[Rfam]
RNA sequence: UCGAGCAGAACGCCGAGUCCUGCCGCUGCUCGACGACCCGCAGACCGCACGGGCAGGAGCGGGGGAACCAGGAUGGACGGGCACGUCGUGCCCUUGGGGUGAAGCCGGUCUCGAUGGACCGGCCGGGCUGCUCCGGCCCGAACCCGACAGCUCACCUCGCAGGCGGCAGGAGUCGUCGAU
Number, nucleotide and partner (000 for none) at each position: 001u000002c000003g000004a000005g000006c000007a000008g000009a000010a000011c165012g164013c163014c162015g000016a000017g000018u058019c057020c056021u055022g054023c053024c052025g000026c000027u000028g000029c000030u000031c000032g000033a000034c000035g000036a000037c000038c000039c000040g000041c000042a000043g000044a000045c000046c000047g000048c000049a000050c000051g000052g024053g023054c022055a021056g020057g019058a018059g160060c159061g158062g157063g156064g155065g000066a000067a000068c000069c096070a095071g094072g093073a000074u000075g000076g000077a000078c000079g000080g000081g000082c000083a000084c000085g000086u000087c000088g000089u000090g000091c000092c000093c072094u071095u070096g069097g145098g144099g143100u000101g000102a000103a000104g000105c122106c121107g120108g119109u000110c000111u000112c000113g000114a000115u000116g000117g000118a000119c108120c107121g106122g105123c000124c000125g139126g138127g137128c136129u000130g000131c000132u000133c000134c000135g000136g128137c127138c126139c125140g000141a000142a000143c099144c098145c097146g000147a000148c000149a000150g000151c000152u000153c000154a000155c064156c063157u062158c061159g060160c059161a000162g014163g013164c012165g011166g000167c000168a000169g000170g000171a000172g000173u000174c000175g000176u000177c000178g000179a000180u000
RNA: c-di-AMP riboswitch aptamer (ydaO/yuaA leader)
Organism: Cellulomonas denverensis